The record is an 81-nucleotide RNA sequence from Sodalis ligni, which matches "antisense RNA of dnaA mRNA" in Rfam. Its family is annotated with regulation of mRNA stability in the Gene Ontology. The match comes from Rfam's covariance-model search (69 bits). For this family Rfam cites "Identification and characterization of a cis-encoded antisense RNA associated with the replication process of Salmonella enterica serovar Typhi" (Dadzie et al., PLoS One, 2013).

[Rfam]
RNA sequence: CUUGGCAUUGGCUUUACGGGCCAUAAUGCCGUUGCCCACCGCAUGCAGCAGAUGCGUUUUACCCAGGCCUGUCCCACCGUA
Numbered sequence: 001c002u003u004g005g006c007a008u009u010g011g012c013u014u015u016a017c018g019g020g021c022c023a024u025a026a027u028g029c030c031g032u033u034g035c036c037c038a039c040c041g042c043a044u045g046c047a048g049c050a051g052a053u054g055c056g057u058u059u060u061a062c063c064c065a066g067g068c069c070u071g072u073c074c075c076a077c078c079g080u081a
Base pairs, nucleotide, nucleotide: 005042006041009038010037011036013034016032017031018030020029021028051078053076054075056074061072062071